Source information
This 328-nucleotide RNA from Ulvibacter antarcticus belongs to the Rfam family "Bacterial RNase P class A". Rfam classes the family as a ribozyme. The organism belongs to Ulvibacter, within Bacteria. Rfam's curators write: Ribonuclease P (RNase P) is a ubiquitous endoribonuclease, found in archaea, bacteria and eukarya as well as chloroplasts and mitochondria.
RNA sequence: GAAGCAGGCCGCCUUAUCGCUGUUCCGAUAUCUAUCGGGAUGGAGGAAAGUCCGGACACCAUAGGGAAGCAUAGCGGCUAACGGCCGUCGCUGUGUAGCACGCGCUACAUGGUAGGACAAGUGCAGCAGAAAGGAUGUACAGGUAAUGCUGUAGUGAAAUCAGGUAAACUCUAUGCGGUGAAAUGCCACGUAUACCUGCGUUUAAGGGUUCCCGCCCAAUGCAGGAGGGUGGGCAGAUAGAGCGUUUCGGUAACGGAAAGCCCAGAUAAAUGAUAAGGUCGAGGAAUUAUUCCUCGAACAGAAUCCGGCUUAUAGGCCUGCUAUUUUU
Numbered sequence: 001g002a003a004g005c006a007g008g009c010c011g012c013c014u015u016a017u018c019g020c021u022g023u024u025c026c027g028a029u030a031u032c033u034a035u036c037g038g039g040a041u042g043g044a045g046g047a048a049a050g051u052c053c054g055g056a057c058a059c060c061a062u063a064g065g066g067a068a069g070c071a072u073a074g075c076g077g078c079u080a081a082c083g084g085c086c087g088u089c090g091c092u093g094u095g096u097a098g099c100a101c102g103c104g105c106u107a108c109a110u111g112g113u114a115g116g117a118c119a120a121g122u123g124c125a126g127c128a129g130a131a132a133g134g135a136u137g138u139a140c141a142g143g144u145a146a147u148g149c150u151g152u153a154g155u156g157a158a159a160u161c162a163g164g165u166a167a168a169c170u171c172u173a174u175g176c177g178g179u180g181a182a183a184u185g186c187c188a189c190g191u192a193u194a195c196c197u198g199c200g201u202u203u204a205a206g207g208g209u210u211c212c213c214g215c216c217c218a219a220u221g222c223a224g225g226a227g228g229g230u231g232g233g234c235a236g237a238u239a240g241a242g243c244g245u246u247u248c249g250g251u252a253a254c255g256g257a258a259a260g261c262c263c264a265g266a267u268a269a270a271u272g273a274u275a276a277g278g279u280c281g282a283g284g285a286a287u288u289a290u291u292c293c294u295c296g297a298a299c300a301g302a303a304u305c306c307g308g309c310u311u312a313u314a315g316g317c318c319u320g321c322u323a324u325u326u327u328u
Base pairs, nucleotide, nucleotide: 001324003322004321005320006319007318008317009316010315011313012278013277014276015275016274017273018272020043021042022041023040024039025038026037027036028035048311049310050309052308053307054306055305056304057180058179059178060177064213065212066211067210069176070175071174072173073172074088075087076086077085078084089115090113091112092111093110094109095108096107097106098105099104116171117170121169122168123165124164184235185234186233187232195225196224197223198222199221206217207216208215209214242261243260245258246257247256248255249254